[Rfam]
The family of this 75-nucleotide RNA from Dysosmobacter segnis is "c-di-GMP-I riboswitch aptamer".
RNA sequence: AAAAUACAUAGGCAAACCCGGCGCAAGUCGGCGACGCAAAGCUAUAGGGACCCACCGGGUCAGCCAGUUGCCAGU
Number, nucleotide and partner (000 for none) at each position: 001a000002a000003a000004a000005u000006a000007c000008a000009u000010a000011g000012g037013c036014a000015a000016a000017c000018c031019c030020g029021g028022c027023g000024c000025a000026a000027g022028u021029c020030g019031g018032c000033g000034a000035c000036g013037c012038a000039a000040a069041g068042c067043u066044a000045u000046a000047g065048g064049g061050a060051c059052c058053c057054a000055c000056c000057g053058g052059g051060u050061c049062a000063g000064c048065c047066a043067g042068u041069u040070g000071c000072c000073a000074g000075u000